[Rfam]
RNA sequence: CGAGUGGAACAUACGGCAGCGGGGCGGCAUUGCGUUCGCUCUGAGGAAAGUCCGGGCUUCACAGGGGAAUGGUAACUGCUAACGGCAGCCGGGGGCGACCCCAGGGAUAGUGCAACAGAAAGAAACCGCCGCGUUUUGCGGUAAGGAUGGAAAGGCGAGGUAAGAGCUCACCAGCGCACUGGCGACUUUGCGGCUAUGUAAACCCUACCAGAAGCAACACCCGUAUGGGGCAUACAGCGCUCCCCGCGCGCCCCGGAGGUGGCAUGAACCCUGCGGCAACGCAGGGUCUAGACAGAUUGCCGUUUAAUACAGAACCCGGCUUACGGUCCGGUCGUUUU
Numbered sequence: 001c002g003a004g005u006g007g008a009a010c011a012u013a014c015g016g017c018a019g020c021g022g023g024g025c026g027g028c029a030u031u032g033c034g035u036u037c038g039c040u041c042u043g044a045g046g047a048a049a050g051u052c053c054g055g056g057c058u059u060c061a062c063a064g065g066g067g068a069a070u071g072g073u074a075a076c077u078g079c080u081a082a083c084g085g086c087a088g089c090c091g092g093g094g095g096c097g098a099c100c101c102c103a104g105g106g107a108u109a110g111u112g113c114a115a116c117a118g119a120a121a122g123a124a125a126c127c128g129c130c131g132c133g134u135u136u137u138g139c140g141g142u143a144a145g146g147a148u149g150g151a152a153a154g155g156c157g158a159g160g161u162a163a164g165a166g167c168u169c170a171c172c173a174g175c176g177c178a179c180u181g182g183c184g185a186c187u188u189u190g191c192g193g194c195u196a197u198g199u200a201a202a203c204c205c206u207a208c209c210a211g212a213a214g215c216a217a218c219a220c221c222c223g224u225a226u227g228g229g230g231c232a233u234a235c236a237g238c239g240c241u242c243c244c245c246g247c248g249c250g251c252c253c254c255g256g257a258g259g260u261g262g263c264a265u266g267a268a269c270c271c272u273g274c275g276g277c278a279a280c281g282c283a284g285g286g287u288c289u290a291g292a293c294a295g296a297u298u299g300c301c302g303u304u305u306a307a308u309a310c311a312g313a314a315c316c317c318g319g320c321u322u323a324c325g326g327u328c329c330g331g332u333c334g335u336u337u338u
Stems, first nucleotide, its partner, number of pairs: 001334003005330004010325001013303006020043008048322003052319005057214004065245003070210005076088004090104001091102004105205002110203002112199003126146002128142006154172002157169003174194001175192004181186001218261004227254003231250001237249004268287008